[Rfam]
RNA sequence: CAGAGUUGUCUUAAGUCAAUCUUUUCUAUGUUUGACCGAAUUUAUAUAGAAGAAAUAUAAAUAUUUGUGACGCCAAAUGAUCACAUUAUGAAAAUAUAGUUUAUGGUGUAUCUAAUGAUACUAAUUUGAUGCCAUAAAUCUUAGUGCUCUUUUCUAUAAAUUCGGUCAAACUUAAAAAAGUUUGAUUUAAGACAACUUUAU
Numbered sequence: 001c002a003g004a005g006u007u008g009u010c011u012u013a014a015g016u017c018a019a020u021c022u023u024u025u026c027u028a029u030g031u032u033u034g035a036c037c038g039a040a041u042u043u044a045u046a047u048a049g050a051a052g053a054a055a056u057a058u059a060a061a062u063a064u065u066u067g068u069g070a071c072g073c074c075a076a077a078u079g080a081u082c083a084c085a086u087u088a089u090g091a092a093a094a095u096a097u098a099g100u101u102u103a104u105g106g107u108g109u110a111u112c113u114a115a116u117g118a119u120a121c122u123a124a125u126u127u128g129a130u131g132c133c134a135u136a137a138a139u140c141u142u143a144g145u146g147c148u149c150u151u152u153u154c155u156a157u158a159a160a161u162u163c164g165g166u167c168a169a170a171c172u173u174a175a176a177a178a179a180g181u182u183u184g185a186u187u188u189a190a191g192a193c194a195a196c197u198u199u200a201u
Stems, first nucleotide, its partner, number of pairs: 005196005011190009021180005031170005047156007056146003060142002063139007074128005
The family of this 201-nucleotide RNA sequence from Miscanthus lutarioriparius is "MIR1435 microRNA precursor family". The base pairs follow the family's consensus structure, which was predicted with RNAalifold. Rfam links the family to the GO terms miRNA-mediated post-transcriptional gene silencing and RISC complex. NCBI's taxonomy places the organism under Eukaryota, Viridiplantae, Spermatophyta, Poales, Miscanthus.